RNA sequence: GCCUUAUACAGAUGUAGUCACGCGAGACAGUGGCGCAUCUCCCUUUAAGGCAGUGAUUUAUUAGAAGCAUAGGUGACAGCACGGGUUGCGUGGCGUAAGAGUCGAAACCUGGUGAGCUUAUGUGGAGUAGGUUAUCCGUAAGACCUUGGGUUGAAAAACUCUAAAAUUGACCUGGGAAUGGCGAGUAUCGUUUCGCGAUUUUCGUUAUUCCCAGUUGCGGUUGA
Dot-bracket structure: ((((((.(.((((((.((((((.....).)))))))))))...).))))))...............((((((((.......((((((....((........))..))))))....)))))))).....(((((..[[[[[[))))).(((((....))))).....]....((((((((((((((...............)))))))))))))).]]]]]....

This 224-nucleotide RNA belongs to the Rfam family "IS605-orfB-I RNA". The family's RNA type in Rfam is small RNA.